[Rfam]
RNA sequence: CAGUGUGUGAUAAAGUGCUUACAGUGCAGGUAGUGAUGAUAACCUGGUCUACUGCAGUGUGAGCACUUCUUUCCCACGCCG
Dot-bracket structure: ...((((.((..(((((((((((.(((.(((((...............)))))))).)))))))))))...)).))))...
Numbered sequence: 001c002a003g004u005g006u007g008u009g010a011u012a013a014a015g016u017g018c019u020u021a022c023a024g025u026g027c028a029g030g031u032a033g034u035g036a037u038g039a040u041a042a043c044c045u046g047g048u049c050u051a052c053u054g055c056a057g058u059g060u061g062a063g064c065a066c067u068u069c070u071u072u073c074c075c076a077c078g079c080c081g
Stems, first nucleotide, its partner, number of pairs: 004078004009073002013068011025056003029053005
Rfam assigns this 81-nucleotide RNA from Mastacembelus armatus to the family "mir-17 microRNA precursor family". The family has 234 seed sequences and 4,687 matches in Rfam 15.1. Rfam describes the family as follows. This family represents the microRNA (miRNA) precursor mir-17, family, which includes mir-20, mir-91, and mir-103. miRNAs are transcribed as ~70nt precursors (modelled here) and subsequently processed by the Dicer enzyme to give a ~22nt product. In this case the mature sequence comes from the 3' arm of the precursor. Rfam links the family to the GO terms miRNA-mediated post-transcriptional gene silencing and RISC complex. Taxonomically the source falls in Mastacembelus (Eukaryota, Gnathostomata, Teleostomi, Neopterygii).